[Rfam]
RNA: Y RNA
Organism: Aotus nancymaae
RNA sequence: GGCUGGUCUGAAUGCAAUGAUUUACAACUAAUUGAUCACAACAAGUUACAGUUUUCUUUUUUCAUUCUCCACUGCCCCUGCUUUACUUGACCAACCUUAA
Number, nucleotide and partner (000 for none) at each position: 001g096002g095003c000004u093005g092006g091007u090008c089009u000010g088011a087012a000013u000014g084015c000016a079017a000018u000019g076020a000021u074022u000023u000024a000025c000026a062027a061028c000029u000030a058031a057032u000033u000034g000035a000036u000037c000038a000039c000040a000041a000042c000043a000044a000045g000046u000047u000048a000049c000050a000051g000052u000053u000054u000055u000056c000057u031058u030059u000060u000061u027062u026063c000064a000065u000066u000067c000068u000069c000070c000071a000072c000073u000074g021075c000076c019077c000078c000079u016080g000081c000082u000083u000084u014085a000086c000087u011088u010089g008090a007091c006092c005093a004094a000095c002096c001097u000098u000099a000100a000